[Rfam]
RNA sequence: CAUUCAAAGCAGAAGCGCCCGCUUCUCACCUGGCCGACCGGUUGUUGGCAGGUACCGGUCAAAACGAAAGAUUCGCUUAGACUGUGAAUGCAGAUGUGGGCAUUUGUUUGCCCGCAUCUUUUUAUUUUG
Numbered sequence: 001c002a003u004u005c006a007a008a009g010c011a012g013a014a015g016c017g018c019c020c021g022c023u024u025c026u027c028a029c030c031u032g033g034c035c036g037a038c039c040g041g042u043u044g045u046u047g048g049c050a051g052g053u054a055c056c057g058g059u060c061a062a063a064a065c066g067a068a069a070g071a072u073u074c075g076c077u078u079a080g081a082c083u084g085u086g087a088a089u090g091c092a093g094a095u096g097u098g099g100g101c102a103u104u105u106g107u108u109u110g111c112c113c114g115c116a117u118c119u120u121u122u123u124a125u126u127u128u129g
Stems, first nucleotide, its partner, number of pairs: 011026006028053003034048005095116008
A member of the RNA family "Ribosomal protein L20 leader" from Paenibacillus sp. J2TS4, 129 nucleotides long. The organism belongs to Paenibacillus, within Bacteria. About the family: This family is a putative r-protein leader autoregulatory structure found in B. subtilis and other low-GC Gram-positive bacteria. It is located in the 5' untranslated regions of mRNAs encoding initiation factor 3 followed by ribosomal proteins L35 and L20 (infC-rpmI-rplT). It is annotated as a cis-regulatory leader.